[Rfam]
RNA sequence: GUCGGUAGACUAUCGGGUGGAAUAGGCAUUUCGGACCCGGGGGGCAGUACCCCGGCGCCUCCACCACCAGCGCGACGCGCAUCGCGGCGCUGCUGAUGGGGGCGAAACAGGAUCGACGAGUGCAAUAAAGGCCUGGUUGCCGAUCGGAUUGGUCCACCGCAACGGGCCAUUCACACAAGUGCCAACGAUAAUGAGGCUCUUGCGAUUGCUGCGUAA
Numbered sequence: 001g002u003c004g005g006u007a008g009a010c011u012a013u014c015g016g017g018u019g020g021a022a023u024a025g026g027c028a029u030u031u032c033g034g035a036c037c038c039g040g041g042g043g044g045c046a047g048u049a050c051c052c053c054g055g056c057g058c059c060u061c062c063a064c065c066a067c068c069a070g071c072g073c074g075a076c077g078c079g080c081a082u083c084g085c086g087g088c089g090c091u092g093c094u095g096a097u098g099g100g101g102g103c104g105a106a107a108c109a110g111g112a113u114c115g116a117c118g119a120g121u122g123c124a125a126u127a128a129a130g131g132c133c134u135g136g137u138u139g140c141c142g143a144u145c146g147g148a149u150u151g152g153u154c155c156a157c158c159g160c161a162a163c164g165g166g167c168c169a170u171u172c173a174c175a176c177a178a179g180u181g182c183c184a185a186c187g188a189u190a191a192u193g194a195g196g197c198u199c200u201u202g203c204g205a206u207u208g209c210u211g212c213g214u215a216a
Stems, first nucleotide, its partner, number of pairs: 001144005015134004027122003031119003037055005056104007145159003